[Rfam]
RNA sequence: GUUGUGCUUGGGAUAUCAUCAUAUACUGUAAGUUUGUUAUACGCCACUACAGUAUAGAUGAUGUACUAUGCCAAACCC
Number, nucleotide and partner (000 for none) at each position: 001g000002u000003u000004g000005u000006g000007c070008u000009u000010g067011g066012g000013a064014u063015a062016u061017c060018a059019u058020c057021a000022u056023a055024u054025a053026c052027u051028g050029u049030a048031a000032g045033u000034u043035u000036g000037u000038u000039a000040u000041a000042c000043g034044c000045c032046a000047c000048u030049a029050c028051a027052g026053u025054a024055u023056a022057g020058a019059u018060g017061a016062u015063g014064u013065a000066c011067u010068a000069u000070g007071c000072c000073a000074a000075a000076c000077c000078c000
RNA: mir-144 microRNA precursor family